[Rfam]
RNA sequence: ACAAUGAUACUUCUGUAAAGCUCGGCGUAAACUUGCGGAGAGGUGUAAUACCUAUGG
Numbered sequence: 001a002c003a004a005u006g007a008u009a010c011u012u013c014u015g016u017a018a019a020g021c022u023c024g025g026c027g028u029a030a031a032c033u034u035g036c037g038g039a040g041a042g043g044u045g046u047a048a049u050a051c052c053u054a055u056g057g
Base pairs, nucleotide, nucleotide: 012054013020014019021040022039023038025036026035027034041053042052043051